[Rfam]
RNA sequence: CGCCUUCAUGUGUUGCCCAUCCAUUGCUCUCUACAAUGAAUGUGGUGUCAGAGAAGGCGAACAUUAAACCUUGGGUCGGCCUUAGCAGGGUUCCUUCAUGGUGACCCUGUCCUAAGUUCUACCCCAAGAACAUCA
Dot-bracket structure: .((((((...((.(((((((.((((.........)))).))).)))).))..))))))...........(((((((.((....(...((((...(........)....)).))...))).))).)))).......
Shown here is a 135-nucleotide RNA sequence from Xiphophorus maculatus, a member of the family "Small nucleolar RNA SNORA13". Rfam 15.1 lists 1,034 matches to the family in 605 species. The family's RNA type in Rfam is H/ACA-box small nucleolar RNA. The base pairs follow the family's consensus structure, which was predicted with CMfinder. Its family is annotated with RNA processing and nucleolus in the Gene Ontology. The source organism's lineage runs through Eukaryota, Euteleostomi, Actinopterygii, Percomorphaceae and Xiphophorus. Rfam describes the family as follows. ACA13 is a member of the H/ACA class of snoRNA that guide the sites of modification of uridines to pseudouridines. It scores 77 bits against the family's covariance model.